[Rfam]
RNA sequence: GGCGUAAAGCGCGCGCAGGCGGUCAUUUAAGUCUGGUGUAUAAACCAAGGGCUCAACCUUUGGACGCAUUGGAAACUGGGUGACUGGAGUGUAGGAGAGGAAAGUGGAAUUCCACGUGUAGCGGUGAAAUGCGUAGAGAUGUGGAGGAACACCAGUGGCGAAGGCGACUUUCUGGCCUAUAACUGACGCUGAGGCGCGAAAGCGUGGGGAGCAAACAGGAUUAGAUACCCUGGUAGUCCACGCCGUAAACGAUGAAUGCUAGGUGUUAGGGGUUUCAAUACCCUUGGUGCCGAAGUUAACACAUUAAGCAUUCCGCCUGGGGAGUACGCUCGCAAGAGUGAAACUCAAAGGAAU
Numbered sequence: 001g002g003c004g005u006a007a008a009g010c011g012c013g014c015g016c017a018g019g020c021g022g023u024c025a026u027u028u029a030a031g032u033c034u035g036g037u038g039u040a041u042a043a044a045c046c047a048a049g050g051g052c053u054c055a056a057c058c059u060u061u062g063g064a065c066g067c068a069u070u071g072g073a074a075a076c077u078g079g080g081u082g083a084c085u086g087g088a089g090u091g092u093a094g095g096a097g098a099g100g101a102a103a104g105u106g107g108a109a110u111u112c113c114a115c116g117u118g119u120a121g122c123g124g125u126g127a128a129a130u131g132c133g134u135a136g137a138g139a140u141g142u143g144g145a146g147g148a149a150c151a152c153c154a155g156u157g158g159c160g161a162a163g164g165c166g167a168c169u170u171u172c173u174g175g176c177c178u179a180u181a182a183c184u185g186a187c188g189c190u191g192a193g194g195c196g197c198g199a200a201a202g203c204g205u206g207g208g209g210a211g212c213a214a215a216c217a218g219g220a221u222u223a224g225a226u227a228c229c230c231u232g233g234u235a236g237u238c239c240a241c242g243c244c245g246u247a248a249a250c251g252a253u254g255a256a257u258g259c260u261a262g263g264u265g266u267u268a269g270g271g272g273u274u275u276c277a278a279u280a281c282c283c284u285u286g287g288u289g290c291c292g293a294a295g296u297u298a299a300c301a302c303a304u305u306a307a308g309c310a311u312u313c314c315g316c317c318u319g320g321g322g323a324g325u326a327c328g329c330u331c332g333c334a335a336g337a338g339u340g341a342a343a344c345u346c347a348a349a350g351g352a353a354u
Base pairs, nucleotide, nucleotide: 001317002316003315009314011197012196013195014194016191018190019189020188022084023083024082025081026080027079028078030077031076032073033072034071035070036069037068038067039066045063046062047061048060049059050058051057088184089183090182091180092179093178094177095176099173100172101171102170103169104168105167106150110146111145112144113143114142115141116140117139121132122131123130158165159164202243203242204241205240206239207238211237212236216232217231218230219229254313255312256311257310258309259308262291263290264289265288266287267286268285269284270283271282272281273280295302296301319346320345321344328339329338330337331336

Bacterial small subunit ribosomal RNA: a 354-nucleotide part of an RNA from Paenibacillus psychroresistens. The organism belongs to Paenibacillus, within Bacteria.